[Rfam]
RNA sequence: CUGUCUCUUGCUUCAGCAGGGUUUGGAUGGGACAG
Dot-bracket structure: ((((.(((.(.((((((...).)))))))))))))
Rfam assigns this 35-nucleotide RNA from Cnephaeus nilssonii to the family "Iron response element I". Rfam 15.1 lists 6,829 matches to the family in 599 species. Rfam classes the family as a cis-regulatory element. A reference for the family is Hentze et al. (1987), "Identification of the iron-responsive element for the translational regulation of human ferritin mRNA", Science. Taxonomically the source falls in Cnephaeus (Eukaryota, Vertebrata, Dipnotetrapodomorpha, Tetrapoda). The family's consensus secondary structure is taken from published work. The match comes from Rfam's covariance-model search (36 bits).